[Rfam]
RNA sequence: ACCAUCCUUUACUUGGGGUUGCGUUACUGUCCAAUGAGCGCACAGUGAGGGUGGAACUGCAAGCGUCUACACAACACACCUGCAUCAACUACAGCUUUGCUUUAUCUUCGUGUGAUUUUUGAAAAA
Dot-bracket structure: .....((((.....))))..(((...((((((.....((.....))..))))))...))).....................((((.(..((.(((...))).))...).)))).............

U4atac minor spliceosomal RNA: a 126-nucleotide RNA from Pongo abelii. Rfam describes the family as follows. U4atac is an essential component of the minor U12-type spliceosome complex which is required for removal of the rarer class of eukaryotic introns (AT-AC, U12-type). A reference for the family is Lorkovic et al. (2005), "Evolutionary conservation of minor U12-type spliceosome between plants and humans", RNA. Rfam links the family to the GO terms mRNA 5'-splice site recognition, pre-mRNA 5'-splice site binding and U4atac snRNP. It is annotated as a spliceosomal small nuclear RNA.